Background
Shown here is an 82-nucleotide sequence from Sinocyclocheilus anshuiensis, a member of the family "mir-184 microRNA precursor family". NCBI's taxonomy places the organism under Eukaryota, Opisthokonta, Osteoglossocephalai, Ostariophysi, Sinocyclocheilus. Its family is annotated with gene silencing by miRNA and RISC complex in the Gene Ontology.
[Rfam]
RNA sequence: UCGCUCACAUCUCAUCACUUUUCCAGCCCAGCUAAAGAUGGUGAAUCUGUUGGACGGAGAACUGAUAAGGGCAUGUGGCUGA
Dot-bracket structure: .........(((.((((.((((((..((.......................))..)))))).)))).)))............